A member of the RNA family "c-di-AMP riboswitch aptamer (ydaO/yuaA leader)" from Corynebacterium mycetoides, 155 nucleotides long. Pairs were carried over by alignment from the consensus structure.
RNA sequence: CUACGUACUUCCCCGAAAACUUCACAAGGACAGAAGCGGAGAACCCGAUCGCGCUACGCGCAGGAGGACACUCCUUGGGGUGAAGCCGCGCACGCGGCCUGGCACCUUCAGCCAGAACCCGACAGCUAACUUCGCAGGCGGUUAAUAAGAGAGGA
Numbered sequence: 001c002u003a004c005g006u007a008c009u010u011c012c013c014c015g016a017a018a019a020c021u022u023c024a025c026a027a028g029g030a031c032a033g034a035a036g037c038g039g040a041g042a043a044c045c046c047g048a049u050c051g052c053g054c055u056a057c058g059c060g061c062a063g064g065a066g067g068a069c070a071c072u073c074c075u076u077g078g079g080g081u082g083a084a085g086c087c088g089c090g091c092a093c094g095c096g097g098c099c100u101g102g103c104a105c106c107u108u109c110a111g112c113c114a115g116a117a118c119c120c121g122a123c124a125g126c127u128a129a130c131u132u133c134g135c136a137g138g139c140g141g142u143u144a145a146u147a148a149g150a151g152a153g154g155a
Base pairs, nucleotide, nucleotide: 011140013138014137020033036135037134038133039132040131041130046077047076078120079119080118086097087096088095089094100114101113102112103111

The match comes from Rfam's covariance-model search (67 bits). Taxonomically the source falls in Corynebacterium (Bacteria, Actinomycetes, Mycobacteriales, Corynebacteriaceae).